Shown here is a 93-nucleotide RNA from Microvirga aerophila, a member of the family "Repression of heat shock gene expression (ROSE) element". On this family, see Nocker et al., Nucleic Acids Res 2001: "A mRNA-based thermosensor controls expression of rhizobial heat shock genes". Rfam describes the family as follows. This family represents a 5' UTR cis-regulatory element found in heat shock mRNAs and is known as the ROSE (repression of heat shock gene expression) element. The ROSE element is a negative regulator of heat shock gene expression. A search with the family's covariance model found it, with a score of 53 bits. Taxonomically the source falls in Microvirga (Bacteria, Pseudomonadati, Hyphomicrobiales, Methylobacteriaceae). Pairs were carried over by alignment from the consensus structure, which is taken from published work.
RNA sequence: GCCAAGGCUUUUCAACAGCUUGGCUGAUCGGGCGCCGGCGGUGUCCGGCGCGUCCGUGGUUACGUUGCUCAAUGGAGGAUGUAGCUAUGAGAA
Numbered sequence: 001g002c003c004a005a006g007g008c009u010u011u012u013c014a015a016c017a018g019c020u021u022g023g024c025u026g027a028u029c030g031g032g033c034g035c036c037g038g039c040g041g042u043g044u045c046c047g048g049c050g051c052g053u054c055c056g057u058g059g060u061u062a063c064g065u066u067g068c069u070c071a072a073u074g075g076a077g078g079a080u081g082u083a084g085c086u087a088u089g090a091g092a093a
Base pairs, nucleotide, nucleotide: 001024002023003022004021005020006019008018009017029052032051033050034049035048036047037046038045053091055089056088057087058086060084061083062082063081064080065079066078068077069076070075